[Rfam]
RNA sequence: CGUAUUGCCACGGGGUGUCUCUAUGCAGGGAGGCUGAGAAAAUACCCGUUUGAACCUGAUCUCGGUAAUUCGAGCGGAGGAAUGGACAAUGAGCGAAGU
Numbered sequence: 001c002g003u004a005u006u007g008c009c010a011c012g013g014g015g016u017g018u019c020u021c022u023a024u025g026c027a028g029g030g031a032g033g034c035u036g037a038g039a040a041a042a043u044a045c046c047c048g049u050u051u052g053a054a055c056c057u058g059a060u061c062u063c064g065g066u067a068a069u070u071c072g073a074g075c076g077g078a079g080g081a082a083u084g085g086a087c088a089a090u091g092a093g094c095g096a097a098g099u
Stems, first nucleotide, its partner, number of pairs: 008085003011048004016042001017034005055080003061074004
Notes:
The family of this 99-nucleotide RNA sequence from Rothia terrae is "TPP riboswitch aptamer (THI element)". Rfam links the family to the GO term thiamine pyrophosphate binding.